[Rfam]
RNA sequence: UGCGCCCUCGCAGGAGAGCGAGGGGCCGCGAGCCCCUCCGCCGAAGGCGCAAACUCCCAUGAUCGCUCAGGCCCAGCACUGCGAGGACUCC
Numbered sequence: 001u002g003c004g005c006c007c008u009c010g011c012a013g014g015a016g017a018g019c020g021a022g023g024g025g026c027c028g029c030g031a032g033c034c035c036c037u038c039c040g041c042c043g044a045a046g047g048c049g050c051a052a053a054c055u056c057c058c059a060u061g062a063u064c065g066c067u068c069a070g071g072c073c074c075a076g077c078a079c080u081g082c083g084a085g086g087a088c089u090c091c
Stems, first nucleotide, its partner, number of pairs: 006086008020038006040072003043068002047066003053060001
Rfam assigns this 91-nucleotide sequence to the family "Glycine riboswitch aptamer".